Rfam assigns this 48-nucleotide sequence from Streptomyces mobaraensis to the family "raiA-hairpin RNA". Rfam's curators put it in the seed alignment. The base pairs follow the family's consensus structure, which is taken from published work. The family's RNA type in Rfam is small RNA.
RNA sequence: CGCCGUGUCGGUGGCUCCGGUCAGCUCCGGGGCCUGAUGCAAGAGGGA
Numbered sequence: 001c002g003c004c005g006u007g008u009c010g011g012u013g014g015c016u017c018c019g020g021u022c023a024g025c026u027c028c029g030g031g032g033c034c035u036g037a038u039g040c041a042a043g044a045g046g047g048a
Stems, first nucleotide, its partner, number of pairs: 013034008